The family of this 35-nucleotide RNA sequence from Chrysochloris asiatica is "Iron response element I". The family has 62 seed sequences and 6,829 matches in Rfam 15.1. Its family is annotated with response to iron ion in the Gene Ontology. The family's RNA type in Rfam is cis-regulatory element.
RNA sequence: AUCUGUCUUGCUUCAACAGUGUUUGGACGGAACAU
Numbered sequence: 001a002u003c004u005g006u007c008u009u010g011c012u013u014c015a016a017c018a019g020u021g022u023u024u025g026g027a028c029g030g031a032a033c034a035u
Stems, first nucleotide, its partner, number of pairs: 001035002004032001006031003010028001012027005017021001
The match comes from Rfam's covariance-model search (44 bits). Lineage of the source: Eukaryota > Bilateria > Deuterostomia > Euteleostomi > Chrysochloris.